[Rfam]
RNA sequence: UAGGACUAUUAUAGUUACAGGUUCUUAUAAUAUUAACCUCGUAUUUACGGGGUUUUUUGUUAUUUGUAAACCUGAAAUUGCCACAAAAUCAGUGGUGUUGUAAUGGGGCUGUUAUAGCCCUUUUUUC
Numbered sequence: 001u002a003g004g005a006c007u008a009u010u011a012u013a014g015u016u017a018c019a020g021g022u023u024c025u026u027a028u029a030a031u032a033u034u035a036a037c038c039u040c041g042u043a044u045u046u047a048c049g050g051g052g053u054u055u056u057u058u059g060u061u062a063u064u065u066g067u068a069a070a071c072c073u074g075a076a077a078u079u080g081c082c083a084c085a086a087a088a089u090c091a092g093u094g095g096u097g098u099u100g101u102a103a104u105g106g107g108g109c110u111g112u113u114a115u116a117g118c119c120c121u122u123u124u125u126u127c
Base pairs, nucleotide, nucleotide: 035054036053037052038051039050040049041048106120107119108118109117

Rfam assigns this 127-nucleotide sequence from Parashewanella spongiae to the family "Gammaprotebacteria rimP leader".
The family's consensus secondary structure is taken from published work.
By type it is a cis-regulatory leader.
Lineage of the source: Bacteria > Pseudomonadota > Gammaproteobacteria > Alteromonadales > Parashewanella.